[Rfam]
RNA sequence: GCGCGGUCUCCGCCGAGUCCGGUGCGCCCGCGCGGGCAGCCGGAGCCGGGGACCCGACAGAGAUCCCCGGGGUGAAUCGGCCCAACUCCCUUGCGGGAGACGGGCUGUAGGGCAACCCUUCCGAAUCAAGGCCCGAACCCGACAGCUAACCCGGUAGGCGGAGUACGGAAGGAGUA
Numbered sequence: 001g002c003g004c005g006g007u008c009u010c011c012g013c014c015g016a017g018u019c020c021g022g023u024g025c026g027c028c029c030g031c032g033c034g035g036g037c038a039g040c041c042g043g044a045g046c047c048g049g050g051g052a053c054c055c056g057a058c059a060g061a062g063a064u065c066c067c068c069g070g071g072g073u074g075a076a077u078c079g080g081c082c083c084a085a086c087u088c089c090c091u092u093g094c095g096g097g098a099g100a101c102g103g104g105c106u107g108u109a110g111g112g113c114a115a116c117c118c119u120u121c122c123g124a125a126u127c128a129a130g131g132c133c134c135g136a137a138c139c140c141g142a143c144a145g146c147u148a149a150c151c152c153g154g155u156a157g158g159c160g161g162a163g164u165a166c167g168g169a170a171g172g173a174g175u176a
Stems, first nucleotide, its partner, number of pairs: 011160004018044006045155006055069002070140003078107006110134004
This 176-nucleotide RNA belongs to the Rfam family "c-di-AMP riboswitch aptamer (ydaO/yuaA leader)". A search with the family's covariance model found it, with a score of 67 bits.